Source information
This 115-nucleotide sequence from Carnobacterium divergens belongs to the Rfam family "23S methyl RNA motif". Lineage of the source: Bacteria > Bacillati > Bacillota > Carnobacterium > Carnobacterium divergens. Rfam links the family to the GO term regulation of gene expression. A reference for the family is Weinberg et al. (2007), "Identification of 22 candidate structured RNAs in bacteria using the CMfinder comparative genomics pipeline", Nucleic Acids Res. It scores 73 bits against the family's covariance model. Rfam classes the family as a cis-regulatory element.

[Rfam]
RNA sequence: AAUUCAUUCGUUUUUAUCAGAGAUCCAUCAGAUUUUGAUAAAAGUUAAUGAAUAAAAAUGAGCUUCACUAACGUAUCGUUUCGCAGUGCUGGACACCGAAGCGAUACGUUUUUUU
Numbered sequence: 001a002a003u004u005c006a007u008u009c010g011u012u013u014u015u016a017u018c019a020g021a022g023a024u025c026c027a028u029c030a031g032a033u034u035u036u037g038a039u040a041a042a043a044g045u046u047a048a049u050g051a052a053u054a055a056a057a058a059u060g061a062g063c064u065u066c067a068c069u070a071a072c073g074u075a076u077c078g079u080u081u082c083g084c085a086g087u088g089c090u091g092g093a094c095a096c097c098g099a100a101g102c103g104a105u106a107c108g109u110u111u112u113u114u115u
Stems, first nucleotide, its partner, number of pairs: 002053007010045013070110014086096003